Description: Glycine riboswitch aptamer: an 84-nucleotide RNA from Novosphingobium sp. TH158.
[Rfam]
RNA sequence: UAGCGACGCUCUGGAAAGACCCCGGACCUGAUCCGGGGCGCCGAAGGGGUAAUGCUCUCAGGCUUCCGUGACAGAGGGGGCACC
Numbered sequence: 001u002a003g004c005g006a007c008g009c010u011c012u013g014g015a016a017a018g019a020c021c022c023c024g025g026a027c028c029u030g031a032u033c034c035g036g037g038g039c040g041c042c043g044a045a046g047g048g049g050u051a052a053u054g055c056u057c058u059c060a061g062g063c064u065u066c067c068g069u070g071a072c073a074g075a076g077g078g079g080g081c082a083c084c
Stems, first nucleotide, its partner, number of pairs: 007078001009076005020038006040063003043059002047057003
Record summary:
The match comes from Rfam's covariance-model search (47 bits). Taxonomically the source falls in Novosphingobium (Bacteria, Pseudomonadati, Alphaproteobacteria, Sphingomonadaceae).